[Rfam]
RNA sequence: GAAUGAAGGAAGCAUGGUAGUGUGCACAGAGAUCGAAUUCACAGGUCAACAUGUCUGCUCCCUCUGAUUCUUUCUGAUUUGGGGGCCUGGUUUAGACCUACAUUC
Numbered sequence: 001g002a003a004u005g006a007a008g009g010a011a012g013c014a015u016g017g018u019a020g021u022g023u024g025c026a027c028a029g030a031g032a033u034c035g036a037a038u039u040c041a042c043a044g045g046u047c048a049a050c051a052u053g054u055c056u057g058c059u060c061c062c063u064c065u066g067a068u069u070c071u072u073u074c075u076g077a078u079u080u081g082g083g084g085g086c087c088u089g090g091u092u093u094a095g096a097c098c099u100a101c102a103u104u105c
Stems, first nucleotide, its partner, number of pairs: 012025004043088005053078003057072001

Small nucleolar RNA snoR100: a 105-nucleotide RNA from Cucumis melo.
The match comes from Rfam's covariance-model search (98 bits).
The family's RNA type in Rfam is H/ACA-box small nucleolar RNA.
On this family, see Marker et al., Curr Biol 2002: "Experimental RNomics: identification of 140 candidates for small non-messenger RNAs in the plant Arabidopsis thaliana".
The base pairs follow the family's consensus structure, which was predicted with WAR.